DUF3800-II RNA: a 74-nucleotide RNA sequence.
[Rfam]
RNA sequence: ACAACAAGUUGACAGGGACAAAGGACGGUGAGCCGCCGAGUUCUAAGCAAUUGGGACUACCUGCACAACUGGCC
Numbered sequence: 001a002c003a004a005c006a007a008g009u010u011g012a013c014a015g016g017g018a019c020a021a022a023g024g025a026c027g028g029u030g031a032g033c034c035g036c037c038g039a040g041u042u043c044u045a046a047g048c049a050a051u052u053g054g055g056a057c058u059a060c061c062u063g064c065a066c067a068a069c070u071g072g073c074c
Stems, first nucleotide, its partner, number of pairs: 007070004013063004023037002026035002039058007
It is one of the family's seed sequences. It is annotated as a small RNA.